A member of the RNA family "Enterobacterial sRNA STnc450", 56 nucleotides long. The family's consensus secondary structure was predicted with CMfinder.

RNA sequence: CGCUAUACUAGCCGCUGAAAUAACCGGCCUACCGCUUCGGACCGGUGUUCAUAAAC
Dot-bracket structure: .((((...))))...((((...(((((.((........)).))))).)))).....
Numbered sequence: 001c002g003c004u005a006u007a008c009u010a011g012c013c014g015c016u017g018a019a020a021u022a023a024c025c026g027g028c029c030u031a032c033c034g035c036u037u038c039g040g041a042c043c044g045g046u047g048u049u050c051a052u053a054a055a056c
Stems, first nucleotide, its partner, number of pairs: 002012004016051004023046005029040002